[Rfam]
RNA sequence: GAAAGAAACUCUGGAGAGUCUCAUAAGUGAGCGCCGAAGGUGUACAGUUUUCAAAUAGGAAACUAAUCUCUCAGGCAAAAGGACAGAGCUUUAUAA
Numbered sequence: 001g002a003a004a005g006a007a008a009c010u011c012u013g014g015a016g017a018g019u020c021u022c023a024u025a026a027g028u029g030a031g032c033g034c035c036g037a038a039g040g041u042g043u044a045c046a047g048u049u050u051u052c053a054a055a056u057a058g059g060a061a062a063c064u065a066a067u068c069u070c071u072c073a074g075g076c077a078a079a080a081g082g083a084c085a086g087a088g089c090u091u092u093a094u095a096a
Base pairs, nucleotide, nucleotide: 006091007090009088010087011086012085013084020031021030022029023028033076034075035074036072037071040070042068046064047063048062049061050060051059
Rfam assigns this 96-nucleotide RNA from Firmicutes bacterium AF12-30 to the family "Glycine riboswitch aptamer". Rfam's curators write: This family represents the bacterial glycine riboswitch. Glycine riboswitches usually consist of two metabolite-binding aptamers domains with similar structures in tandem. The aptamers cooperatively bind glycine to regulate the expression of downstream genes. In Bacillus subtilis, this riboswitch is found upstream of the gcvT operon which controls glycine degradation. Lineage of the source: Bacteria > Bacillati > Bacillota.